Description
A member of the RNA family "c-di-GMP-I riboswitch aptamer" from Serpentinicella alkaliphila, 88 nucleotides long. The match comes from Rfam's covariance-model search (82 bits). NCBI's taxonomy places the organism under Bacteria, Bacillati, Clostridia, Natronincolaceae, Serpentinicella. The base pairs follow the family's consensus structure, which is taken from published work.
[Rfam]
RNA sequence: CGAUGAAAAUAGCAAACUUAUUGAAAGAUAGGGACGCAAAGCCUUGGGUCUAAGGGUUAUAUUAGCCUAUGAUUGCCAGGUUGCCAAA
Numbered sequence: 001c002g003a004u005g006a007a008a009a010u011a012g013c014a015a016a017c018u019u020a021u022u023g024a025a026a027g028a029u030a031g032g033g034a035c036g037c038a039a040a041g042c043c044u045u046g047g048g049u050c051u052a053a054g055g056g057u058u059a060u061a062u063u064a065g066c067c068u069a070u071g072a073u074u075g076c077c078a079g080g081u082u083g084c085c086a087a088a
Stems, first nucleotide, its partner, number of pairs: 012037002017032006040082004045078003048073003055067004